[Rfam]
RNA sequence: CCAACAGCAUCACCGCAGCACCUAGGGAACCGGGGAACCACCAUCCUUGGGGUGAAUCGGGCGCUUCCUCGGAGGAGCCCGUAGGAGACCUUCCUGCUCCGAACCCGUCAGCUAACCCGGUAGGCGAGACGGAAGGAAAGG
Number, nucleotide and partner (000 for none) at each position: 001c000002c000003a000004a000005c000006a000007g000008c000009a000010u000011c126012a000013c124014c123015g000016c000017a000018g000019c027020a000021c000022c000023u000024a000025g000026g000027g019028a000029a121030c120031c119032g118033g117034g116035g000036a000037a000038c000039c049040a048041c000042c000043a000044u000045c000046c000047u000048u040049g039050g106051g105052g104053u000054g000055a000056a000057u000058c081059g080060g079061g078062c000063g000064c000065u000066u000067c000068c000069u000070c000071g000072g000073a000074g000075g000076a000077g000078c061079c060080c059081g058082u000083a000084g100085g099086a098087g097088a000089c000090c000091u000092u000093c000094c000095u000096g000097c087098u086099c085100c084101g000102a000103a000104c052105c051106c050107g000108u000109c000110a000111g000112c000113u000114a000115a000116c034117c033118c032119g031120g030121u029122a000123g014124g013125c000126g011127a000128g000129a000130c000131g000132g000133a000134a000135g000136g000137a000138a000139a000140g000141g000
This 141-nucleotide RNA sequence from Streptomyces sp. SAJ15 belongs to the Rfam family "c-di-AMP riboswitch aptamer (ydaO/yuaA leader)". Rfam describes the family as follows. This family represents a conserved RNA structure found upstream of the ydaO and yuaA genes in Bacillus subtilis and related genes in other bacteria. The source organism's lineage runs through Bacteria, Bacillati, Actinomycetes, Streptomycetaceae and Streptomyces. Pairs were carried over by alignment from the consensus structure. A search with the family's covariance model found it, with a score of 85 bits.